[Rfam]
RNA sequence: GAUGGUUCUCGGGUGACACACCCUGGAAUUGGGCUCCCUCCUCUCUGGUUCCAGUUGCGUCACCCCAGAACCCCA
Numbered sequence: 001g002a003u004g005g006u007u008c009u010c011g012g013g014u015g016a017c018a019c020a021c022c023c024u025g026g027a028a029u030u031g032g033g034c035u036c037c038c039u040c041c042u043c044u045c046u047g048g049u050u051c052c053a054g055u056u057g058c059g060u061c062a063c064c065c066c067a068g069a070a071c072c073c074c075a
Base pairs, nucleotide, nucleotide: 005071006070007069008068009067011065012064013063014062015061016060017059019057020056023054025052026051027050028049029048030047031046032045033044
Shown here is a 75-nucleotide RNA from Myotis brandtii, a member of the family "mir-9223 microRNA precursor family".
The family's consensus secondary structure was predicted with RNAalifold.
Rfam links the family to the GO terms miRNA-mediated post-transcriptional gene silencing and RISC complex.
It scores 68 bits against the family's covariance model.